Rfam assigns this 88-nucleotide RNA to the family "skipping-rope RNA".
The family's RNA type in Rfam is small RNA.
[Rfam]
RNA sequence: AAGGGUAGAGGUUGAGAAUCUGUCACCAACGCGCCAUUUAGCUAGUGGGUCGAGAAAUGCAGGAACCUCGACAGUCCUGCCUAUCCUU
Number, nucleotide and partner (000 for none) at each position: 001a088002a087003g086004g085005g084006u083007a082008g081009a000010g000011g030012u029013u028014g027015a000016g000017a000018a000019u000020c074021u073022g072023u071024c070025a000026c000027c014028a013029a012030c011031g000032c054033g000034c048035c047036a046037u045038u044039u000040a000041g000042c000043u000044a038045g037046u036047g035048g034049g000050u000051c000052g000053a000054g032055a000056a000057a000058u000059g080060c079061a078062g077063g076064a000065a000066c000067c000068u000069c000070g024071a023072c022073a021074g020075u000076c063077c062078u061079g060080c059081c008082u007083a006084u005085c004086c003087u002088u001